[Rfam]
RNA sequence: GUCCUCGAAGGAAGCGCGCUCCUCCUCCCAGCGCUCCUUCAUAGACUGGCAACACUCCUCCUCCUCCCAGUUGCCGGUCAGGAUCAAGAGCCCGACGCAUCCUCCUCCCGCGUCGGGCUCUUUUC
Numbered sequence: 001g002u003c004c005u006c007g008a009a010g011g012a013a014g015c016g017c018g019c020u021c022c023u024c025c026u027c028c029c030a031g032c033g034c035u036c037c038u039u040c041a042u043a044g045a046c047u048g049g050c051a052a053c054a055c056u057c058c059u060c061c062u063c064c065u066c067c068c069a070g071u072u073g074c075c076g077g078u079c080a081g082g083a084u085c086a087a088g089a090g091c092c093c094g095a096c097g098c099a100u101c102c103u104c105c106u107c108c109c110g111c112g113u114c115g116g117g118c119u120c121u122u123u124u125c
Stems, first nucleotide, its partner, number of pairs: 007040003011036001013035005044079010088120011
Dot-bracket structure: ......(((.(.(((((.............)))))).)))...((((((((((................))))))))))........(((((((((((...........))))))))))).....
Rfam assigns this 125-nucleotide sequence from Arminella tubonensis to the family "Alphaproteobacterial ar14". Smr14C2 was renamed NfeR1 (Nodule Formation Efficiency RNA) highly expressed in salt stress and during the symbiotic interaction on legume roots. It is annotated as a small RNA.